The record is a 171-nucleotide RNA sequence from Cytobacillus kochii, which matches "glmS glucosamine-6-phosphate activated ribozyme aptamer" in Rfam. The family's consensus secondary structure is taken from published work.
RNA sequence: UUCAUAAUUAAAGCGCCCGGGCUAAUCUUUGAACGGAUAUGGAAGGUUAGUUGACGAGGAGGAGGUUUAUCGAAGCAUCGGCGGGUACCUCCCGGUUGAAAAGCACAACCGUAAUCAUGUCUUUAAAUCAUUAGGGUAACCUAAUGGACAAAGAGAGAUGAAUGCCAUAAA
Numbered sequence: 001u002u003c004a005u006a007a008u009u010a011a012a013g014c015g016c017c018c019g020g021g022c023u024a025a026u027c028u029u030u031g032a033a034c035g036g037a038u039a040u041g042g043a044a045g046g047u048u049a050g051u052u053g054a055c056g057a058g059g060a061g062g063a064g065g066u067u068u069a070u071c072g073a074a075g076c077a078u079c080g081g082c083g084g085g086u087a088c089c090u091c092c093c094g095g096u097u098g099a100a101a102a103g104c105a106c107a108a109c110c111g112u113a114a115u116c117a118u119g120u121c122u123u124u125a126a127a128u129c130a131u132u133a134g135g136g137u138a139a140c141c142u143a144a145u146g147g148a149c150a151a152a153g154a155g156a157g158a159u160g161a162a163u164g165c166c167a168u169a170a171a
Stems, first nucleotide, its partner, number of pairs: 020052008029043001061092005070081004093111006115161004120156002129146007